Overview: The family of this 265-nucleotide sequence from Molossus molossus is "Mason-Pfizer monkey virus packaging signal". Rfam classes the family as a cis-regulatory element. The family has 9 seed sequences and 2,921 matches in Rfam 15.1. It scores 114 bits against the family's covariance model. Pairs were carried over by alignment from the consensus structure, which was predicted with PFOLD. Lineage of the source: Eukaryota > Opisthokonta > Tetrapoda > Mammalia > Molossus. For this family Rfam cites "Mutational analysis of the predicted secondary RNA structure of the Mason-Pfizer monkey virus packaging signal" (Mustafa et al., Virus Res, 2004).
RNA sequence: UGGCACCCAAUGUGGGGCUCGAGAAUGAGGGAUCCAGUGAAGGACACCGUUUGAGUGGCCGGCAGAAAGAAAGGAAAGAGGGAACGAUGUGGGAACCUGCUGCGUCUGCAUCCCUCGGGUAAGUGAACGGUGAUUAUGGGUCAAGAAAUGAGCCAACAUAAGAUGUUUGUUGAAGGACUAGGAAAGGCUCUCAAGGCACGAAGAGUAAAGGUAAAAAUUAAGCAUUUGUGUCAGUAUUUUGAUUAUAUUAAGGAAGUUUGCCCUU
Numbered sequence: 001u002g003g004c005a006c007c008c009a010a011u012g013u014g015g016g017g018c019u020c021g022a023g024a025a026u027g028a029g030g031g032a033u034c035c036a037g038u039g040a041a042g043g044a045c046a047c048c049g050u051u052u053g054a055g056u057g058g059c060c061g062g063c064a065g066a067a068a069g070a071a072a073g074g075a076a077a078g079a080g081g082g083a084a085c086g087a088u089g090u091g092g093g094a095a096c097c098u099g100c101u102g103c104g105u106c107u108g109c110a111u112c113c114c115u116c117g118g119g120u121a122a123g124u125g126a127a128c129g130g131u132g133a134u135u136a137u138g139g140g141u142c143a144a145g146a147a148a149u150g151a152g153c154c155a156a157c158a159u160a161a162g163a164u165g166u167u168u169g170u171u172g173a174a175g176g177a178c179u180a181g182g183a184a185a186g187g188c189u190c191u192c193a194a195g196g197c198a199c200g201a202a203g204a205g206u207a208a209a210g211g212u213a214a215a216a217a218u219u220a221a222g223c224a225u226u227u228g229u230g231u232c233a234g235u236a237u238u239u240u241g242a243u244u245a246u247a248u249u250a251a252g253g254a255a256g257u258u259u260g261c262c263c264u265u
Base pairs, nucleotide, nucleotide: 006031007030008029012026013025037047038046079115080113081112085108088104089103090102091101092100124143125142126141128140131138132137150191152188153187154186199241200240201239202238203237205235206234209227210226211225212224250265251264252263253262
Dot-bracket structure: .....(((...((...........))..))).....((.......))...............................(((...(..(((((.......)))))...)...)).)........(((.(..((....)).))))......(.(((...............................)))..).......(((((.((..((((...........))))......)).)))))........((((........))))